[Rfam]
RNA sequence: GUUUUAGUAUAAGUAUGUCUCAUGAAAUAUCUGGGAUAUACUUACACUAAAA
Number, nucleotide and partner (000 for none) at each position: 001g000002u000003u000004u000005u000006a048007g047008u046009a000010u044011a043012a042013g000014u040015a039016u038017g000018u036019c035020u034021c033022a000023u000024g000025a000026a000027a000028u000029a000030u000031c000032u000033g021034g020035g019036a018037u000038a016039u015040a014041c000042u012043u011044a010045c000046a008047c007048u006049a000050a000051a000052a000
RNA: mir-1302 microRNA precursor family